Background
Rfam assigns this 82-nucleotide RNA sequence from Agromyces intestinalis to the family "ZMP/ZTP riboswitch aptamer (pfl RNA motif)".
[Rfam]
RNA sequence: UUGCCGCGUCGCGACUGGCGUUGAGAUGGUUCACCAUCGGGGAGCGACCGGCACGCAUCGACCGCACGCCUGGGCCGGUACG
Numbered sequence: 001u002u003g004c005c006g007c008g009u010c011g012c013g014a015c016u017g018g019c020g021u022u023g024a025g026a027u028g029g030u031u032c033a034c035c036a037u038c039g040g041g042g043a044g045c046g047a048c049c050g051g052c053a054c055g056c057a058u059c060g061a062c063c064g065c066a067c068g069c070c071u072g073g074g075c076c077g078g079u080a081c082g
Stems, first nucleotide, its partner, number of pairs: 003052003008048005015041002017070005026037004059077002062074002
Pairs were carried over by alignment from the consensus structure, which is taken from published work. It scores 51 bits against the family's covariance model.